[Rfam]
A member of the RNA family "TD-2 RNA" from Treponema denticola, 105 nucleotides long. Pairs were carried over by alignment from the consensus structure, which is taken from published work. On this family, see Weinberg et al., Nucleic Acids Res 2007: "Identification of 22 candidate structured RNAs in bacteria using the CMfinder comparative genomics pipeline". Its Rfam clan is "TD (Treponema denticola) motifs".
RNA sequence: CAAGCGGUUUGUUUACAAACCGCAUACGAUAAACGAUGUUUGCCGUUUACGGCAAACUCGAAGAUAAACAGUGAGGCUGAAUUCCUGCCGAGCUGUUUAUCGUAC
Numbered sequence: 001c002a003a004g005c006g007g008u009u010u011g012u013u014u015a016c017a018a019a020c021c022g023c024a025u026a027c028g029a030u031a032a033a034c035g036a037u038g039u040u041u042g043c044c045g046u047u048u049a050c051g052g053c054a055a056a057c058u059c060g061a062a063g064a065u066a067a068a069c070a071g072u073g074a075g076g077c078u079g080a081a082u083u084c085c086u087g088c089c090g091a092g093c094u095g096u097u098u099a100u101c102g103u104a105c
Stems, first nucleotide, its partner, number of pairs: 006013001034060003038057008063101010075089002